[Rfam]
Shown here is a 78-nucleotide RNA from Monodelphis domestica, a member of the family "mir-2188 microRNA precursor family". NCBI's taxonomy places the organism under Eukaryota, Opisthokonta, Eumetazoa, Dipnotetrapodomorpha, Monodelphis. The family's consensus secondary structure was predicted with RNAalifold.
Nucleotides: 078
Stems, first nucleotide, its partner, number of pairs: 002077001004075001006073005012067005019060003023056006030049003
Number, partner (000 for none) and nucleotide at each position: 001000c002077c003000c004075u005000a006073u007072g008071g009070g010069a011000a012067a013066g014065g015064u016063c017000c018000a019060a020059u021058u022000u023056u024055a025054c026053a027052u028051g029000c030049c031048c032047u033000g034000u035000a036000u037000g038000a039000a040000a041000u042000a043000a044000a045000a046000a047032g048031g049030g050000c051028u052027a053026u054025g055024u056023g057000u058021g059020g060019u061000u062000g063016g064015a065014c066013c067012u068000g069010u070009c071008c072007c073006a074000c075004a076000g077002g078000c